This 73-nucleotide sequence from Aphidius gifuensis belongs to the Rfam family "mir-252 microRNA precursor family". The base pairs follow the family's consensus structure, which was predicted with RNAalifold. The source organism's lineage runs through Eukaryota, Eumetazoa, Panarthropoda, Pancrustacea and Aphidius. The family has 44 seed sequences and 422 matches in Rfam 15.1. It scores 68 bits against the family's covariance model.
[Rfam]
RNA sequence: AUCUGUUCUUAAGUACUAGUGCCGCAGGAAAAAAUGACAGUGUCUCCUGCUGCUCAAGUGCUUAUCAAUGGGU
Numbered sequence: 001a002u003c004u005g006u007u008c009u010u011a012a013g014u015a016c017u018a019g020u021g022c023c024g025c026a027g028g029a030a031a032a033a034a035u036g037a038c039a040g041u042g043u044c045u046c047c048u049g050c051u052g053c054u055c056a057a058g059u060g061c062u063u064a065u066c067a068a069u070g071g072g073u
Stems, first nucleotide, its partner, number of pairs: 001073007010064008019055001024050006